[Rfam]
RNA sequence: GCAGCGGUUUAGCUCAGUGGCUACUUCCAAUCACCCAAUGAUACCUAGCUCCACCGCCCUCCGGUCAGGGGUUCGAACCACGGGCGCUGUCCGCUGUUUUC
Numbered sequence: 001g002c003a004g005c006g007g008u009u010u011a012g013c014u015c016a017g018u019g020g021c022u023a024c025u026u027c028c029a030a031u032c033a034c035c036c037a038a039u040g041a042u043a044c045c046u047a048g049c050u051c052c053a054c055c056g057c058c059c060u061c062c063g064g065u066c067a068g069g070g071g072u073u074c075g076a077a078c079c080a081c082g083g084g085c086g087c088u089g090u091c092c093g094c095u096g097u098u099u100u101c
Stems, first nucleotide, its partner, number of pairs: 002096006012085004017081004025077003029073003
The family of this 101-nucleotide RNA sequence from Etheostoma spectabile is "Vault RNA". The family's RNA type in Rfam is non-coding RNA gene. From the family's description: This family of RNAs are found as part of the enigmatic vault ribonucleoprotein complex. The source organism's lineage runs through Eukaryota, Vertebrata, Ctenosquamata, Euacanthomorphacea and Oligocephalus.